[Rfam]
RNA sequence: AGCUGCGUGCACACUUCAAUUGGCGUACUAUUCUUUCGCCUUUUACUAAAGAAUACCGUGGGGUGAGCACGCUAAGCAGCAUACGCAAAUUUUUGCCGGCCUCUCG
Numbered sequence: 001a002g003c004u005g006c007g008u009g010c011a012c013a014c015u016u017c018a019a020u021u022g023g024c025g026u027a028c029u030a031u032u033c034u035u036u037c038g039c040c041u042u043u044u045a046c047u048a049a050a051g052a053a054u055a056c057c058g059u060g061g062g063g064u065g066a067g068c069a070c071g072c073u074a075a076g077c078a079g080c081a082u083a084c085g086c087a088a089a090u091u092u093u094u095g096c097c098g099g100c101c102u103c104u105c106g
Stems, first nucleotide, its partner, number of pairs: 003079004008069003012065007029055008
Record summary:
Shown here is a 106-nucleotide RNA sequence from Chara braunii, a member of the family "U5 spliceosomal RNA". A search with the family's covariance model found it, with a score of 77 bits. The organism belongs to Chara, within Eukaryota. Rfam describes the family as follows. U5 RNA is a component of both types of known spliceosome.